[Rfam]
RNA sequence: UGCCAAAGUUUUCCUCGGCAGUUAGCUGCAGCCGGUUCUUUUAAAUUUCGGCAGUUAACAGCCGAAGGACAU
Numbered sequence: 001u002g003c004c005a006a007a008g009u010u011u012u013c014c015u016c017g018g019c020a021g022u023u024a025g026c027u028g029c030a031g032c033c034g035g036u037u038c039u040u041u042u043a044a045a046u047u048u049c050g051g052c053a054g055u056u057a058a059c060a061g062c063c064g065a066a067g068g069a070c071a072u
Stems, first nucleotide, its partner, number of pairs: 012068002015065005021059009

The record is a 72-nucleotide sequence from Medicago truncatula, which matches "MIR2629 microRNA precursor family" in Rfam. The organism belongs to Medicago, within Eukaryota. The family's consensus secondary structure was predicted with RNAalifold.